[Rfam]
RNA sequence: AAUAGUCUUCAGGGCAGGGUGUAAGUCCCUACCGGUGGUAAAGCCCACGAGCCGCAAAGCAGAUUCGGUUAAAUUCCGAAGCCGACAGUAUAGUCUGGAUGAAAGAAGACAGUA
Numbered sequence: 001a002a003u004a005g006u007c008u009u010c011a012g013g014g015c016a017g018g019g020u021g022u023a024a025g026u027c028c029c030u031a032c033c034g035g036u037g038g039u040a041a042a043g044c045c046c047a048c049g050a051g052c053c054g055c056a057a058a059g060c061a062g063a064u065u066c067g068g069u070u071a072a073a074u075u076c077c078g079a080a081g082c083c084g085a086c087a088g089u090a091u092a093g094u095c096u097g098g099a100u101g102a103a104a105g106a107a108g109a110c111a112g113u114a
Stems, first nucleotide, its partner, number of pairs: 003112001005110006017029003031094002033084002035048004043082002051060002064080005086097003
Dot-bracket structure: ..(.((((((......(((.......))).[[((((((....[[))))..((......))...(((((.......)))))]])).(((....]]))).......)))))).)..
The family of this 114-nucleotide RNA sequence from Alkalibacterium sp. 20 is "FMN riboswitch aptamer (RFN element)". The organism belongs to Alkalibacterium, within Bacteria. Rfam's curators write: The RFN element is a highly conserved domain that is found frequently in the 5'-untranslated regions of prokaryotic mRNAs that encode for flavin mononucleotide (FMN) biosynthesis and transport proteins.